[Rfam]
RNA: Group II catalytic intron D1-D4-6
RNA sequence: AGAGUCCUCAUAGGAAAGCGGUUCCCGCCGUAUCCUAAAUCGAGUUUUGAGUGUAUGGAGGUGACGACAUGGACUAAGCGUAAACAGAGAUGAAGCAGGCCGUAAGGGGGUGUCCCCUGAAGUGAUUGAGCCUCGAAAAGUCGAGAUAGAAUGGCCGACACUUUCGCAAUAGUGGAAGGCAACAUCGUUAUACCUGUAAUGGGUAGGGUAUAAUGGCAUUCUCGGGGUCUUAGAGCA
Numbered sequence: 001a002g003a004g005u006c007c008u009c010a011u012a013g014g015a016a017a018g019c020g021g022u023u024c025c026c027g028c029c030g031u032a033u034c035c036u037a038a039a040u041c042g043a044g045u046u047u048u049g050a051g052u053g054u055a056u057g058g059a060g061g062u063g064a065c066g067a068c069a070u071g072g073a074c075u076a077a078g079c080g081u082a083a084a085c086a087g088a089g090a091u092g093a094a095g096c097a098g099g100c101c102g103u104a105a106g107g108g109g110g111u112g113u114c115c116c117c118u119g120a121a122g123u124g125a126u127u128g129a130g131c132c133u134c135g136a137a138a139a140g141u142c143g144a145g146a147u148a149g150a151a152u153g154g155c156c157g158a159c160a161c162u163u164u165c166g167c168a169a170u171a172g173u174g175g176a177a178g179g180c181a182a183c184a185u186c187g188u189u190a191u192a193c194c195u196g197u198a199a200u201g202g203g204u205a206g207g208g209u210a211u212a213a214u215g216g217c218a219u220u221c222u223c224g225g226g227g228u229c230u231u232a233g234a235g236c237a
Stems, first nucleotide, its partner, number of pairs: 012036004019030003023205001025203002040088002044085004048080002050075003054071004060065001128229001130228006148222006154180003159174004185216011